[Rfam]
RNA sequence: GGGCCGGCUUUUAGCCCAGCGGUUCCUUCGGCAUUUCAGAACAUUUCCUGCUCUGUCUAACGUUAAGGCGUUCGAGCCCCACAUUGGGCGCCAUCUAUCCGUGCC
Numbered sequence: 001g002g003g004c005c006g007g008c009u010u011u012u013a014g015c016c017c018a019g020c021g022g023u024u025c026c027u028u029c030g031g032c033a034u035u036u037c038a039g040a041a042c043a044u045u046u047c048c049u050g051c052u053c054u055g056u057c058u059a060a061c062g063u064u065a066a067g068g069c070g071u072u073c074g075a076g077c078c079c080c081a082c083a084u085u086g087g088g089c090g091c092c093a094u095c096u097a098u099c100c101g102u103g104c105c
Stems, first nucleotide, its partner, number of pairs: 002100002006096002014089004019082001021080002027076005

Notes: This 105-nucleotide RNA from Monodelphis domestica belongs to the Rfam family "Vault RNA". Taxonomically the source falls in Monodelphis (Eukaryota, Opisthokonta, Eumetazoa, Tetrapoda). The base pairs follow the family's consensus structure, which is taken from published work. The literature on the family includes a 2009 paper in Mol Biol Evol by Stadler et al., "Evolution of Vault RNAs". Rfam classes the family as a non-coding RNA gene. Rfam describes the family as follows. This family of RNAs are found as part of the enigmatic vault ribonucleoprotein complex. The complex consists of a major vault protein (MVP), two minor vault proteins (VPARP and TEP1), and several small untranslated RNA molecules. It has been suggested that the vault complex is involved in drug resistance.